[Rfam]
The record is a 164-nucleotide RNA from Erpetoichthys calabaricus, which matches "U1 spliceosomal RNA" in Rfam.
RNA sequence: AUACUUACCUGGCAGGGGAGAUACCAUGAUCACUAAGGUGGUUCUCCCACGGUGAGGCUCAUCCAUUGCACUCCGGGUGUGCUGACCCCUGUGAUUUCCCCAAACGUGGGAAACUCAACUGUUUUUAGGUGGAGUGGUGGCUCUGAAGUAGGCAUCUGCACUGG
Numbered sequence: 001a002u003a004c005u006u007a008c009c010u011g012g013c014a015g016g017g018g019a020g021a022u023a024c025c026a027u028g029a030u031c032a033c034u035a036a037g038g039u040g041g042u043u044c045u046c047c048c049a050c051g052g053u054g055a056g057g058c059u060c061a062u063c064c065a066u067u068g069c070a071c072u073c074c075g076g077g078u079g080u081g082c083u084g085a086c087c088c089c090u091g092u093g094a095u096u097u098c099c100c101c102a103a104a105c106g107u108g109g110g111a112a113a114c115u116c117a118a119c120u121g122u123u124u125u126u127a128g129g130u131g132g133a134g135u136g137g138u139g140g141c142u143c144u145g146a147a148g149u150a151g152g153c154a155u156c157u158g159c160a161c162u163g164g
Base pairs, nucleotide, nucleotide: 012122013121014120015119016048017047018046019045020044021043023042024041025040026039027038049090051088052087054086056083057082058081060079061078062077063076064075092117093116094115095113096112097111099109100108135163136162137161138160139159143158145156146155148153